Lysine riboswitch aptamer: a 180-nucleotide RNA from Companilactobacillus farciminis.

[Rfam]
RNA sequence: UAAUCAGAUAGAGGUGCAAUCUUUAUUAUUAAUAUUUUGGAGUAUGGAUAGGGUACUUUGAAAAGAUAUGAAAGGAAAGUUUGCCGAAAUCAAUUAUCCCUACUUGGUAAUUUGAUUGGGCUGCUGCUUAAUAGGUGGUGGACUGUCGAUUUUAGAGAGUGGAGAAUGGCAUUCGGGUUC
Numbered sequence: 001u002a003a004u005c006a007g008a009u010a011g012a013g014g015u016g017c018a019a020u021c022u023u024u025a026u027u028a029u030u031a032a033u034a035u036u037u038u039g040g041a042g043u044a045u046g047g048a049u050a051g052g053g054u055a056c057u058u059u060g061a062a063a064a065g066a067u068a069u070g071a072a073a074g075g076a077a078a079g080u081u082u083g084c085c086g087a088a089a090u091c092a093a094u095u096a097u098c099c100c101u102a103c104u105u106g107g108u109a110a111u112u113u114g115a116u117u118g119g120g121c122u123g124c125u126g127c128u129u130a131a132u133a134g135g136u137g138g139u140g141g142a143c144u145g146u147c148g149a150u151u152u153u154a155g156a157g158a159g160u161g162g163a164g165a166a167u168g169g170c171a172u173u174c175g176g177g178u179u180c
Base pairs, nucleotide, nucleotide: 016084017083018082019081021079022078023077024076032069033068034067035066036065037064038063088117089116090115091114092113093112095110098107099106118144119143121141122140123139124138125137126136127135128134148180149179151177152176
A search with the family's covariance model found it, with a score of 83 bits.